Shown here is a 52-nucleotide sequence, a member of the family "eL15-Euryarchaeota ribosomal protein leader". Pairs were carried over by alignment from the consensus structure, which is taken from published work. A reference for the family is Eckert and Weinberg (2020), "Discovery of 20 novel ribosomal leader candidates in bacteria and archaea", BMC Microbiol. By type it is a cis-regulatory leader.
RNA sequence: GCGGGAUAAAAUCUCCCGCAGGGAUGUGGCCUUUAACAGGCUGAACCGUGAA
Numbered sequence: 001g002c003g004g005g006a007u008a009a010a011a012u013c014u015c016c017c018g019c020a021g022g023g024a025u026g027u028g029g030c031c032u033u034u035a036a037c038a039g040g041c042u043g044a045a046c047c048g049u050g051a052a
Stems, first nucleotide, its partner, number of pairs: 001019005021047002028042005